[Rfam]
RNA sequence: AUUAAAUAAGAUAAUACUCCGCAGACAGUAGGUGCGAAAGCAUAACGGGGAACCAACCUACCGAGGAUUUAGAUAUUCGGUAUUUUGGAUAUAUUAAGCCUCUUCGUGUCUGGGAAGAGGCUUUUAGUUUUUGUUA
Numbered sequence: 001a002u003u004a005a006a007u008a009a010g011a012u013a014a015u016a017c018u019c020c021g022c023a024g025a026c027a028g029u030a031g032g033u034g035c036g037a038a039a040g041c042a043u044a045a046c047g048g049g050g051a052a053c054c055a056a057c058c059u060a061c062c063g064a065g066g067a068u069u070u071a072g073a074u075a076u077u078c079g080g081u082a083u084u085u086u087g088g089a090u091a092u093a094u095u096a097a098g099c100c101u102c103u104u105c106g107u108g109u110c111u112g113g114g115a116a117g118a119g120g121c122u123u124u125u126a127g128u129u130u131u132u133g134u135u136a
Stems, first nucleotide, its partner, number of pairs: 028061006034041002098121008107112001

Source information
The family of this 136-nucleotide RNA sequence from Clostridium novyi is "Ribosomal protein L10 leader". The organism belongs to Clostridium novyi, within Bacteria. Rfam's curators put it in the seed alignment.